The family of this 62-nucleotide RNA from Sporomusaceae bacterium FL31 is "Fluoride riboswitch aptamer (crcB RNA motif)". The literature on the family includes a 2012 paper in Science by Baker et al., "Widespread genetic switches and toxicity resistance proteins for fluoride". A search with the family's covariance model found it, with a score of 57 bits. The family's consensus secondary structure is taken from published work.
RNA sequence: AUAGUAACAGGCGAUGGAGUUCGCCAUUAACCCCGCAUUGCGGUAAUGACUCCUACCAUUUA
Dot-bracket structure: .........[[[[..((((((]]]].......(((.....)))....)))))).........